[Rfam]
Overview: Rfam assigns this 79-nucleotide sequence from Morella rubra to the family "Small nucleolar RNA R160". snoR160 is a C/D box small nucleolar RNA, which acts as a methylation guide for 25S ribosomal RNA in plants. snoR160 has been alternatively named snoZ270 in rice.

RNA sequence: AGCAAAAUGAUGAGCUUCUUAUGUCUGAAUAUGAUGUAGAUUUACAUACCAUAUUGGUCUUCAAAGUUCUCUGAUUGCU
Dot-bracket structure: (((((.....................................................................)))))